[Rfam]
RNA sequence: GGGGGUGAGGGACUGGAGAGAAAGGCAGUUCCUGAUGGUCCCCUCCCCAGGGGCUGGCUUUCCUCCGGCCCCUCCUUCC
Numbered sequence: 001g002g003g004g005g006u007g008a009g010g011g012a013c014u015g016g017a018g019a020g021a022a023a024g025g026c027a028g029u030u031c032c033u034g035a036u037g038g039u040c041c042c043c044u045c046c047c048c049a050g051g052g053g054c055u056g057g058c059u060u061u062c063c064u065c066c067g068g069c070c071c072c073u074c075c076u077u078c079c
Base pairs, nucleotide, nucleotide: 004076005075007074008073009072010071011070013068014067015066016065017064018063020062021061022060023059024058026056027055028054029053030052031051032050033049034048037046038045
A member of the RNA family "mir-185 microRNA precursor family" from Bos taurus, 79 nucleotides long. It is one of the family's seed sequences. The organism belongs to Bos, within Eukaryota. A reference for the family is Kim et al. (2008), "Identification and characterization of new microRNAs from pig", Mamm Genome. Gene Ontology terms of the family: miRNA-mediated post-transcriptional gene silencing and RISC complex.